[Rfam]
RNA sequence: GGGAGCAGAUAGGUGCUGGUGUGCCUCCUGGACUUCAAAUCCAGUGGCGGGCGAGACCCGUCCGCGGUGGGUUCGAUUCCCAUGUGCUCCC
Numbered sequence: 001g002g003g004a005g006c007a008g009a010u011a012g013g014u015g016c017u018g019g020u021g022u023g024c025c026u027c028c029u030g031g032a033c034u035u036c037a038a039a040u041c042c043a044g045u046g047g048c049g050g051g052c053g054a055g056a057c058c059c060g061u062c063c064g065c066g067g068u069g070g071g072u073u074c075g076a077u078u079c080c081c082a083u084g085u086g087c088u089c090c091c
Base pairs, nucleotide, nucleotide: 001091002090003089004088005087006086007085009083011026012025013024014023015022016021028044029043030042031041032040047065048064049063050062051061068082069081070080071079

This 91-nucleotide RNA sequence from Koleobacter methoxysyntrophicus belongs to the Rfam family "Selenocysteine transfer RNA".